[Rfam]
RNA sequence: AAUAAAUAAAAAAUAUUAACUCAUAUAAUAGUGGGGAUAUGGCCUGCGAGUUUCUACCAGCUACCGCAAAUAGUUGACUAUGAGUGAAAUGAUUGAUUUU
Dot-bracket structure: ..................(((((((...(.(((((.......))))).)........((((((.......))))))..)))))))...............